[Rfam]
RNA: mir-8799 microRNA precursor family
Organism: Nyctereutes procyonoides
RNA sequence: AGGGGAGUGCCGGACCCUGGGCUGUGUCCCCCGGCACCCUGGGCUCCAGGGCCCGCCCCUCUGGAAUCGUAGUCUCGGGCCGUGUAGCCCACU
Numbered sequence: 001a002g003g004g005g006a007g008u009g010c011c012g013g014a015c016c017c018u019g020g021g022c023u024g025u026g027u028c029c030c031c032c033g034g035c036a037c038c039c040u041g042g043g044c045u046c047c048a049g050g051g052c053c054c055g056c057c058c059c060u061c062u063g064g065a066a067u068c069g070u071a072g073u074c075u076c077g078g079g080c081c082g083u084g085u086a087g088c089c090c091a092c093u
Stems, first nucleotide, its partner, number of pairs: 001093002004090002009085002011082003016078002019075003023071004027065002031063001033059002037055001041053001043052003